[Rfam]
RNA sequence: CCGUGGGACACCCUUCCCCAACGAAGGGCGCCUAUCUGUGAGGAUAGCUAAA
Numbered sequence: 001c002c003g004u005g006g007g008a009c010a011c012c013c014u015u016c017c018c019c020a021a022c023g024a025a026g027g028g029c030g031c032c033u034a035u036c037u038g039u040g041a042g043g044a045u046a047g048c049u050a051a052a
Stems, first nucleotide, its partner, number of pairs: 011028006032047006
The record is a 52-nucleotide sequence from Pseudovibrio axinellae, which matches "serC leader" in Rfam. Rfam links the family to the GO term regulation of gene expression. From the family's description: This family is a putative regulatory RNA structure that is found upstream of the serC-serA operon in some alpha-proteobacteria. It is annotated as a cis-regulatory leader. Lineage of the source: Bacteria > Pseudomonadota > Alphaproteobacteria > Hyphomicrobiales > Pseudovibrio. The pairing is the family consensus, mapped onto this sequence.